[Rfam]
Ribosomal protein L13 leader: a 63-nucleotide RNA sequence from Bacillus sp. FJAT-27231.
Rfam classes the family as a cis-regulatory leader.
Rfam links the family to the GO term regulation of gene expression.
From the family's description: This family is a putative r-protein leader autoregulatory structure found in B. subtilis and other low-GC Gram-positive bacteria. It is located in the 5' untranslated regions of mRNAs encoding the L13-S9 (rplM-rpsI) ribosomal protein operon.
A reference for the family is Zengel and Lindahl (1994), "Diverse mechanisms for regulating ribosomal protein synthesis in Escherichia coli", Prog Nucleic Acid Res Mol Biol.
RNA sequence: GGUACGUUAUUUAACCCCACGAUAAGCCCCGGAAACUUAUUCGUGAUAUAAAUAAAAUACAAU
Numbered sequence: 001g002g003u004a005c006g007u008u009a010u011u012u013a014a015c016c017c018c019a020c021g022a023u024a025a026g027c028c029c030c031g032g033a034a035a036c037u038u039a040u041u042c043g044u045g046a047u048a049u050a051a052a053u054a055a056a057a058u059a060c061a062a063u
Stems, first nucleotide, its partner, number of pairs: 008059005014053001018045003021041006